The family of this 135-nucleotide sequence from Ottowia testudinis is "Y RNA-like".
RNA sequence: AUCGCAAAUGCCGGUGGAACUACAGUAAUCCAUGGGUCGCGGGUUCGAAUCCCGCCACGCCUGCCAGGUGCAGUGCGUGUAGCUCAGUCAGGAUAGAGCGAUGGAAAUGUUUCACCAAAACCUGGUUGCGAUCAC
Numbered sequence: 001a002u003c004g005c006a007a008a009u010g011c012c013g014g015u016g017g018a019a020c021u022a023c024a025g026u027a028a029u030c031c032a033u034g035g036g037u038c039g040c041g042g043g044u045u046c047g048a049a050u051c052c053c054g055c056c057a058c059g060c061c062u063g064c065c066a067g068g069u070g071c072a073g074u075g076c077g078u079g080u081a082g083c084u085c086a087g088u089c090a091g092g093a094u095a096g097a098g099c100g101a102u103g104g105a106a107a108u109g110u111u112u113c114a115c116c117a118a119a120a121c122c123u124g125g126u127u128g129c130g131a132u133c134a135c
Stems, first nucleotide, its partner, number of pairs: 002131006013116007023103001032102002039055005056079005082099004
Rfam describes the family as follows. In Deinococcus radiodurans Rsr is tethered via Y RNA to the exoribonuclease PNPase and channels single-stranded RNA into the PNPase cavity. Rsr and Y RNA enhance degradation of structured RNAs by PNPase. On this family, see Chen et al., RNA 2014: "Bacterial noncoding Y RNAs are widespread and mimic tRNAs". Rfam classes the family as a small RNA.